[Rfam]
RNA: ilvH RNA
Organism: Ramlibacter humi
RNA sequence: GGCGAACCGAAUCGUCCCGCCGAGCCCGCCGCUUACCGGCGGCGGGGGAGGGCGGCGAAAAGGCGAGCCG
Numbered sequence: 001g002g003c004g005a006a007c008c009g010a011a012u013c014g015u016c017c018c019g020c021c022g023a024g025c026c027c028g029c030c031g032c033u034u035a036c037c038g039g040c041g042g043c044g045g046g047g048g049a050g051g052g053c054g055g056c057g058a059a060a061a062g063g064c065g066a067g068c069c070g
Stems, first nucleotide, its partner, number of pairs: 012058003017055005025046009